[Rfam]
RNA sequence: CCAAACCAAGGGAAUGUUUUUCUCACGAUAUUUUCAGUGAGUGACAGAAAGGACUCACAUCAGCCAAAGAGCUGAUUGAAUAUACGAUUAUAAGGAUUGG
Numbered sequence: 001c002c003a004a005a006c007c008a009a010g011g012g013a014a015u016g017u018u019u020u021u022c023u024c025a026c027g028a029u030a031u032u033u034u035c036a037g038u039g040a041g042u043g044a045c046a047g048a049a050a051g052g053a054c055u056c057a058c059a060u061c062a063g064c065c066a067a068a069g070a071g072c073u074g075a076u077u078g079a080a081u082a083u084a085c086g087a088u089u090a091u092a093a094g095g096a097u098u099g100g
Stems, first nucleotide, its partner, number of pairs: 022041005059076006

Background:
gltS RNA: a 100-nucleotide sequence from Vibrio sp. qd031. A search with the family's covariance model found it, with a score of 54 bits. The base pairs follow the family's consensus structure, which is taken from published work. The organism belongs to Vibrio, within Bacteria.